A member of the RNA family "Early nodulin 40" from Cajanus cajan, 293 nucleotides long. It is annotated as a non-coding RNA gene. Gene Ontology term of the family: nodulation. The source organism's lineage runs through Eukaryota, Gunneridae, rosids, Fabaceae and Cajanus. The match comes from Rfam's covariance-model search (185 bits). On this family, see Gultyaev and Roussis, Nucleic Acids Res 2007: "Identification of conserved secondary structures and expansion segments in enod40 RNAs reveals new enod40 homologues in plants".
RNA sequence: AUGGAGCUUUGUUGGCAAAAAUCCAUCCAUGGCUCUUAAAGAAGCAUGGAGGAUUGUGUGAGAGGGUCUCCUCACCCCUCACACUCCUCCACCUCCUACAGUUUGCUUGUGCUUGGCCAUUGGCUUCUCUGAUCAAUAAUCACAAAGGGUGUAUAUGGAGAAACAUAUAUAAUUCUCUAUGAAGUGGCAUGAAGCAGAGAAGCAUUCUCCAUAGGAGCAGAGAGGCUUUGGCUAUAGCCAGGCAAACCGGCAAGUCACAAAAAGGCAAUGGACUCUUCUCAUUAAGGGGUUCU
Dot-bracket structure: .........................................................(..............................)...........((((((.............(...................................................................................................................).....)))))).......................(((((((.......)))))))..
Numbered sequence: 001a002u003g004g005a006g007c008u009u010u011g012u013u014g015g016c017a018a019a020a021a022u023c024c025a026u027c028c029a030u031g032g033c034u035c036u037u038a039a040a041g042a043a044g045c046a047u048g049g050a051g052g053a054u055u056g057u058g059u060g061a062g063a064g065g066g067u068c069u070c071c072u073c074a075c076c077c078c079u080c081a082c083a084c085u086c087c088u089c090c091a092c093c094u095c096c097u098a099c100a101g102u103u104u105g106c107u108u109g110u111g112c113u114u115g116g117c118c119a120u121u122g123g124c125u126u127c128u129c130u131g132a133u134c135a136a137u138a139a140u141c142a143c144a145a146a147g148g149g150u151g152u153a154u155a156u157g158g159a160g161a162a163a164c165a166u167a168u169a170u171a172a173u174u175c176u177c178u179a180u181g182a183a184g185u186g187g188c189a190u191g192a193a194g195c196a197g198a199g200a201a202g203c204a205u206u207c208u209c210c211a212u213a214g215g216a217g218c219a220g221a222g223a224g225g226c227u228u229u230g231g232c233u234a235u236a237g238c239c240a241g242g243c244a245a246a247c248c249g250g251c252a253a254g255u256c257a258c259a260a261a262a263a264g265g266c267a268a269u270g271g272a273c274u275c276u277u278c279u280c281a282u283u284a285a286g287g288g289g290u291u292c293u
Stems, first nucleotide, its partner, number of pairs: 058089001101247006120236001271291007